[Rfam]
RNA sequence: UGACCAUCCCGAGCGGCCGAGAGACCUGGAUCGAUGACGCCGCAGCAACCCCUCCGUUCGGAGCAAGGUGCUACUGCCAGGACCGAUGGAAA
Numbered sequence: 001u002g003a004c005c006a007u008c009c010c011g012a013g014c015g016g017c018c019g020a021g022a023g024a025c026c027u028g029g030a031u032c033g034a035u036g037a038c039g040c041c042g043c044a045g046c047a048a049c050c051c052c053u054c055c056g057u058u059c060g061g062a063g064c065a066a067g068g069u070g071c072u073a074c075u076g077c078c079a080g081g082a083c084c085g086a087u088g089g090a091a092a
Stems, first nucleotide, its partner, number of pairs: 001092001004089005013043005021032002026080004044072004049068002052063003076084001
RNA: SAM riboswitch aptamer (S box leader)
Organism: Arthrobacter mobilis